The record is a 97-nucleotide sequence from Firmicutes bacterium AF36-19BH, which matches "Purine riboswitch aptamer" in Rfam.
NCBI's taxonomy places the organism under Bacteria, Bacillati, Bacillota.
[Rfam]
RNA sequence: UAUUUCAGGUAUAAUAAUUCGAGUAUAAGUCUGCAAAAGGGGCAGACGUUUCUACCAACCGCCAAACUGGUUGACUACAUUUUACGUAGUCAACCUU
Numbered sequence: 001u002a003u004u005u006c007a008g009g010u011a012u013a014a015u016a017a018u019u020c021g022a023g024u025a026u027a028a029g030u031c032u033g034c035a036a037a038a039g040g041g042g043c044a045g046a047c048g049u050u051u052c053u054a055c056c057a058a059c060c061g062c063c064a065a066a067c068u069g070g071u072u073g074a075c076u077a078c079a080u081u082u083u084a085c086g087u088a089g090u091c092a093a094c095c096u097u
Stems, first nucleotide, its partner, number of pairs: 021080001023078003029047006056073006

Riboswitches are metabolite binding domains within certain messenger RNAs that serve as precision sensors for their corresponding targets.
The base pairs follow the family's consensus structure, which is taken from published work.
Rfam links the family to the GO term purine nucleobase biosynthetic process.